[Rfam]
RNA sequence: ACAUCGCUGGUUGGUGGUGGGCUCGCUGAGGCGGCCUUGACCAGUCAUGCGUGAUUGAGACGACAAGCCGCCCGGAAGUUUCGAGGCGGCUUUUUU
Numbered sequence: 001a002c003a004u005c006g007c008u009g010g011u012u013g014g015u016g017g018u019g020g021g022c023u024c025g026c027u028g029a030g031g032c033g034g035c036c037u038u039g040a041c042c043a044g045u046c047a048u049g050c051g052u053g054a055u056u057g058a059g060a061c062g063a064c065a066a067g068c069c070g071c072c073c074g075g076a077a078g079u080u081u082c083g084a085g086g087c088g089g090c091u092u093u094u095u096u
Stems, first nucleotide, its partner, number of pairs: 011044005017038001019037004024033003048059001050057002065092008073083003

A member of the RNA family "RcsR1 sRNA" from Shinella sp. WSJ-2, 96 nucleotides long. The source organism's lineage runs through Bacteria, Pseudomonadati, Pseudomonadota, Rhizobiaceae and Shinella. Pairs were carried over by alignment from the consensus structure, which is taken from published work. Its family is annotated with sRNA-mediated gene silencing and negative regulation of translation in response to stress in the Gene Ontology. RcsR1 (rhizobial cold and salinity stress riboregulator 1) trans-acting sRNA, formerly known as SmelC587, is a stress-related riboregulator, conserved in Sinorhizobium, Rhizobium and Agrobacterium.